[Rfam]
RNA sequence: CCUUUGGAGGGUUUGAUCCUGGCUCAGAGUGAACGCUGGCGGCGUGGUUUAGGCAUGCAAGUCGAGCGAUCUUGUUUCCGUUGUUGUGGGGUAACCUGCAGCAAUGGUAACUUGAUAGCGGCAAACGGGUGAGCAAUACAUGGGUAACUUGCCUCAAGGAGGAGCAUAGUCCGUCGAAAGGCGGAGUAAUACUCCAUAACGCCUGGAAUCGUAAGGUUCCCGGCCAAAGAUGGCCUCUAUUUAUAAGCUAUCGCCAUGAGAGAGGCCCAUGUCCUAUCAGGUAGUUGGCGGGGUAACGGCCCACCAAGCCUAAGACGGGUAGCUGGCGUCAGAGCGUGGCCAGCCACAUCGGGACUGAGACACUGCCCGGACUCCUACGGGAGGCUGCAGUCGAGAAUCUUUUCCAAUGGACGAAAGUCUGAGAAUGCGACGCCGCGUGAGGGAUGAAGGUCUUCGGAUUGUAAACCUAUUUUAUCGGGGAGGAACCUUUUGGUGUGAACAAUGCCAAAAGUUGACUGUACCCGGUGAAUAAGCCACGGCUAACUCCGUGCCAGCAGCCGCGGUAAUACGGAGGUGGCAAGCGUUACUCGGUUUGAUUG
Numbered sequence: 001c002c003u004u005u006g007g008a009g010g011g012u013u014u015g016a017u018c019c020u021g022g023c024u025c026a027g028a029g030u031g032a033a034c035g036c037u038g039g040c041g042g043c044g045u046g047g048u049u050u051a052g053g054c055a056u057g058c059a060a061g062u063c064g065a066g067c068g069a070u071c072u073u074g075u076u077u078c079c080g081u082u083g084u085u086g087u088g089g090g091g092u093a094a095c096c097u098g099c100a101g102c103a104a105u106g107g108u109a110a111c112u113u114g115a116u117a118g119c120g121g122c123a124a125a126c127g128g129g130u131g132a133g134c135a136a137u138a139c140a141u142g143g144g145u146a147a148c149u150u151g152c153c154u155c156a157a158g159g160a161g162g163a164g165c166a167u168a169g170u171c172c173g174u175c176g177a178a179a180g181g182c183g184g185a186g187u188a189a190u191a192c193u194c195c196a197u198a199a200c201g202c203c204u205g206g207a208a209u210c211g212u213a214a215g216g217u218u219c220c221c222g223g224c225c226a227a228a229g230a231u232g233g234c235c236u237c238u239a240u241u242u243a244u245a246a247g248c249u250a251u252c253g254c255c256a257u258g259a260g261a262g263a264g265g266c267c268c269a270u271g272u273c274c275u276a277u278c279a280g281g282u283a284g285u286u287g288g289c290g291g292g293g294u295a296a297c298g299g300c301c302c303a304c305c306a307a308g309c310c311u312a313a314g315a316c317g318g319g320u321a322g323c324u325g326g327c328g329u330c331a332g333a334g335c336g337u338g339g340c341c342a343g344c345c346a347c348a349u350c351g352g353g354a355c356u357g358a359g360a361c362a363c364u365g366c367c368c369g370g371a372c373u374c375c376u377a378c379g380g381g382a383g384g385c386u387g388c389a390g391u392c393g394a395g396a397a398u399c400u401u402u403u404c405c406a407a408u409g410g411a412c413g414a415a416a417g418u419c420u421g422a423g424a425a426u427g428c429g430a431c432g433c434c435g436c437g438u439g440a441g442g443g444a445u446g447a448a449g450g451u452c453u454u455c456g457g458a459u460u461g462u463a464a465a466c467c468u469a470u471u472u473u474a475u476c477g478g479g480g481a482g483g484a485a486c487c488u489u490u491u492g493g494u495g496u497g498a499a500c501a502a503u504g505c506c507a508a509a510a511g512u513u514g515a516c517u518g519u520a521c522c523c524g525g526u527g528a529a530u531a532a533g534c535c536a537c538g539g540c541u542a543a544c545u546c547c548g549u550g551c552c553a554g555c556a557g558c559c560g561c562g563g564u565a566a567u568a569c570g571g572a573g574g575u576g577g578c579a580a581g582c583g584u585u586a587c588u589c590g591g592u593u594u595g596a597u598u599g
Stems, first nucleotide, its partner, number of pairs: 009025005027589004032585006039436006045429002052392003056389003061122003066119002069116002084101007129347003138272008148264002153260004158255002161195004170185006201224003205220006229252006273319003280310003285307004290302003322344004326337004349370005372383004402425003408421005440468003449460004474526006483516001489510003533578005544573005554561002
Shown here is a 599-nucleotide part of an RNA from an uncultured bacterium, a member of the family "Bacterial small subunit ribosomal RNA". Rfam links the family to the GO terms structural constituent of ribosome and ribosome. It is one of the family's seed sequences.